[Rfam]
RNA sequence: UAUUUGAAUCAUACCUGCGAUCAACUCGAUGAAUAAAGUACGCCAGUACUUCGAGGUGUGUGGUAAAUCCAAUAGACCCGGAAACGGGUGAGGGGCGCCCAGUCAACCAAAUCAAGGAUACUUCUUUUGGAAGGCUGCCGGGGUUUAGUGAUAAAUCCCGGGAAGACGGAAACCGUCAACGGAAACACAUAUCGCAGAAAUGCCCGCAUUUAAAAGCACGGAACUUCUGGAUGCAGCAAUAGACGCCUACGGUGUAGGAGUAAGCCUAAGGGGUAUCAGUGUGGCAACUGAUAUGACAGAGGUAAAGCCAACAAUGCAUUCUGCCUUGAUGACGGAGAAAUCCGCCUAUAACAGAAGUCGCCGGUGAAAGUAGCCAUAUGGCAGAUUGACAAAAACUCGUUUAUUAAUCUGAAUGGACGGUGAAAUUUACAGGUAGCCAAUCCUGUGCAGGCUUGUGGCGUAAGCCAAGGGUAAGAAGUUAGGGGUCGCUCCCCGAAGCUCAGACUUAUCUUCCUGGUGGCAGAAUAUAAGUGAAGGGCACGGAUUGUACGGCGAAGGCCGGAUCGUAGGUAUGAUUCAA
Numbered sequence: 001u002a003u004u005u006g007a008a009u010c011a012u013a014c015c016u017g018c019g020a021u022c023a024a025c026u027c028g029a030u031g032a033a034u035a036a037a038g039u040a041c042g043c044c045a046g047u048a049c050u051u052c053g054a055g056g057u058g059u060g061u062g063g064u065a066a067a068u069c070c071a072a073u074a075g076a077c078c079c080g081g082a083a084a085c086g087g088g089u090g091a092g093g094g095g096c097g098c099c100c101a102g103u104c105a106a107c108c109a110a111a112u113c114a115a116g117g118a119u120a121c122u123u124c125u126u127u128u129g130g131a132a133g134g135c136u137g138c139c140g141g142g143g144u145u146u147a148g149u150g151a152u153a154a155a156u157c158c159c160g161g162g163a164a165g166a167c168g169g170a171a172a173c174c175g176u177c178a179a180c181g182g183a184a185a186c187a188c189a190u191a192u193c194g195c196a197g198a199a200a201u202g203c204c205c206g207c208a209u210u211u212a213a214a215a216g217c218a219c220g221g222a223a224c225u226u227c228u229g230g231a232u233g234c235a236g237c238a239a240u241a242g243a244c245g246c247c248u249a250c251g252g253u254g255u256a257g258g259a260g261u262a263a264g265c266c267u268a269a270g271g272g273g274u275a276u277c278a279g280u281g282u283g284g285c286a287a288c289u290g291a292u293a294u295g296a297c298a299g300a301g302g303u304a305a306a307g308c309c310a311a312c313a314a315u316g317c318a319u320u321c322u323g324c325c326u327u328g329a330u331g332a333c334g335g336a337g338a339a340a341u342c343c344g345c346c347u348a349u350a351a352c353a354g355a356a357g358u359c360g361c362c363g364g365u366g367a368a369a370g371u372a373g374c375c376a377u378a379u380g381g382c383a384g385a386u387u388g389a390c391a392a393a394a395a396c397u398c399g400u401u402u403a404u405u406a407a408u409c410u411g412a413a414u415g416g417a418c419g420g421u422g423a424a425a426u427u428u429a430c431a432g433g434u435a436g437c438c439a440a441u442c443c444u445g446u447g448c449a450g451g452c453u454u455g456u457g458g459c460g461u462a463a464g465c466c467a468a469g470g471g472u473a474a475g476a477a478g479u480u481a482g483g484g485g486u487c488g489c490u491c492c493c494c495g496a497a498g499c500u501c502a503g504a505c506u507u508a509u510c511u512u513c514c515u516g517g518u519g520g521c522a523g524a525a526u527a528u529a530a531g532u533g534a535a536g537g538g539c540a541c542g543g544a545u546u547g548u549a550c551g552g553c554g555a556a557g558g559c560c561g562g563a564u565c566g567u568a569g570g571u572a573u574g575a576u577u578c579a580a
Base pairs, nucleotide, nucleotide: 007577008576009575010574011573012572013571014570015569016568017567018566019565020564021563022562025055026054027053028052029051037050038049039048040047041046057191058190059189060188061187062186101136102135103134104133108129109128110127111126114123115122116121138161139160140159141158142157143156144155145154146153147152165177166176167175168174169173201540202539203538204537205536210531211530215528219363220362221361223358224357225356226355227354228353229352230320231319232318233317234316235315246258247257248256249255264303265302266301267300273294274293275292276291277290278289279288282310283309284308285307321384322383323382324381325380331346333344334343335342367426373421374420375419377417408504409503410502411501432444433443448516449515450514451466457465469512470511471510474507475506478500480497482494483493484492485491550561551560552559553558
Dot-bracket structure: ......((((((((((((((((..(((((.......(((((....)))))))))).((((((......................................((((...((((..(((....)))..))))...)))).((((((((((....))))))))))...(((((...)))))........)))))).........(((((....((...(...(((.(((((((((((((..........((((.....)))).....((((.....(((((((..[[[[..))))))).....))))...]]]]....))))))[[[[[.....(.(((......))).).....)))))))..)))...(.....(((.(..]]]]].......................[[[[.....).)))....).....((.........))...((((.....(.......))..(((..((..(.(.((((.....))))..)..)]]]].))..))).)))...........).))....))))).........((((....))))))))))))))))))))...
ROOL RNA: a 580-nucleotide RNA sequence from Firmicutes bacterium CAG:227. The match comes from Rfam's covariance-model search (370 bits). By type it is a small RNA. About the family: Firmicutes, Fusobacteria (1 example), Tenericutes (1 example).